RNA sequence: CUUCCCAUUUGACUGCCACUUCUUCGAUUUACAGAUUAAGUGGCUAUGCUUAUGGGAUACAGAAAAAAGUGCUAGAGUCUGAAGGAAAAGAUUGUUAAUAUCUCUUUUCUAUAUGAGAUGGCAGAACAUUAUACA
Numbered sequence: 001c002u003u004c005c006c007a008u009u010u011g012a013c014u015g016c017c018a019c020u021u022c023u024u025c026g027a028u029u030u031a032c033a034g035a036u037u038a039a040g041u042g043g044c045u046a047u048g049c050u051u052a053u054g055g056g057a058u059a060c061a062g063a064a065a066a067a068a069g070u071g072c073u074a075g076a077g078u079c080u081g082a083a084g085g086a087a088a089a090g091a092u093u094g095u096u097a098a099u100a101u102c103u104c105u106u107u108u109c110u111a112u113a114u115g116a117g118a119u120g121g122c123a124g125a126a127c128a129u130u131a132u133a134c135a
Stems, first nucleotide, its partner, number of pairs: 004056004016043004071122004089110003
This 135-nucleotide sequence from Crocodylus porosus belongs to the Rfam family "Small nucleolar RNA SNORA29".
The family is grouped with related families in Rfam's "SNORA20 clan".
About the family: ACA29 is a member of the H/ACA class of snoRNA that guide the sites of modification of uridines to pseudouridines.
The base pairs follow the family's consensus structure, which was predicted with PFOLD.
Lineage of the source: Eukaryota > Bilateria > Dipnotetrapodomorpha > Archosauria > Crocodylus.
The literature on the family includes a 2001 paper in EMBO J by Huttenhofer et al., "RNomics: an experimental approach that identifies 201 candidates for novel, small, non-messenger RNAs in mouse".
Its family is annotated with RNA processing and nucleolus in the Gene Ontology.
It scores 106 bits against the family's covariance model.